Rfam assigns this 61-nucleotide sequence to the family "Selenocysteine insertion sequence 1". The family's RNA type in Rfam is cis-regulatory element. The incorporation of selenocysteine into a protein sequence is directed by an in-frame UGA codon (usually a stop codon) within the coding region of the mRNA. Selenoprotein mRNAs contain a conserved secondary structure in the 3' UTR that is required for the distinction of UGA stop from UGA selenocysteine. The selenocysteine insertion sequence (SECIS) is around 60 nt in length and adopts a hairpin structure which is sufficiently well-defined and conserved to act as a computational screen for selenoprotein genes.

RNA sequence: AUAUUUGUUUAUGAUGGUCACAGUGUAAAGUUCACACAGCUGUGACUUGAUUUUUAAAAAU
Numbered sequence: 001a002u003a004u005u006u007g008u009u010u011a012u013g014a015u016g017g018u019c020a021c022a023g024u025g026u027a028a029a030g031u032u033c034a035c036a037c038a039g040c041u042g043u044g045a046c047u048u049g050a051u052u053u054u055u056a057a058a059a060a061u
Stems, first nucleotide, its partner, number of pairs: 001061002004058002016047009030037002